Source information:
The record is a 129-nucleotide sequence from Mesocricetus auratus, which matches "Small nucleolar RNA SNORA15" in Rfam. The literature on the family includes a 2001 paper in EMBO J by Huttenhofer et al., "RNomics: an experimental approach that identifies 201 candidates for novel, small, non-messenger RNAs in mouse". ACA15 is a member of the H/ACA class of snoRNA that guide the sites of modification of uridines to pseudouridines. Gene Ontology terms of the family: nucleolus and RNA processing.
[Rfam]
RNA sequence: GCAUGGCUGAAUACUGCGUUACUUUAGUCUGUAAUUUACACAGCCAGACACCACGCAGAAGUAACGCCUGCCUUAAAAACGAGAGGCAUGCUGUUUUAUGGUAUAUUGUUACUAAAAGUGAGUGCAAUC
Numbered sequence: 001g002c003a004u005g006g007c008u009g010a011a012u013a014c015u016g017c018g019u020u021a022c023u024u025u026a027g028u029c030u031g032u033a034a035u036u037u038a039c040a041c042a043g044c045c046a047g048a049c050a051c052c053a054c055g056c057a058g059a060a061g062u063a064a065c066g067c068c069u070g071c072c073u074u075a076a077a078a079a080c081g082a083g084a085g086g087c088a089u090g091c092u093g094u095u096u097u098a099u100g101g102u103a104u105a106u107u108g109u110u111a112c113u114a115a116a117a118g119u120g121a122g123u124g125c126a127a128u129c
Base pairs, nucleotide, nucleotide: 001056002055004053005052006051014043015042016041018039019038068122069121071118073116074115076113082110083109085107086106088104089103090102091101092100093099